[Rfam]
RNA: MIR6274 microRNA precursor family
RNA sequence: GGACAAUACUGUUUUGCUAUUUCCGACCAAUAACACAAUGAUACGUGAAAAAGUUAUCUUACAUGUCAUUGCACUAUUGGUCGAAAAUAGCAAAAAGUGUCC
Numbered sequence: 001g002g003a004c005a006a007u008a009c010u011g012u013u014u015u016g017c018u019a020u021u022u023c024c025g026a027c028c029a030a031u032a033a034c035a036c037a038a039u040g041a042u043a044c045g046u047g048a049a050a051a052a053g054u055u056a057u058c059u060u061a062c063a064u065g066u067c068a069u070u071g072c073a074c075u076a077u078u079g080g081u082c083g084a085a086a087a088u089a090g091c092a093a094a095a096a097g098u099g100u101c102c
Base pairs, nucleotide, nucleotide: 002101003100004099005098012095013094014093015092016091017090018089019088020087022085024083025082026081027080028079029078030077031076032075036071037070038069039068040067041066042065043064045062046061047060048059050057
Dot-bracket structure: .((((......(((((((((.(.(((((((((...((((((((.((((.(......).)))).))))))))...))))))))).).)))))))))..)))).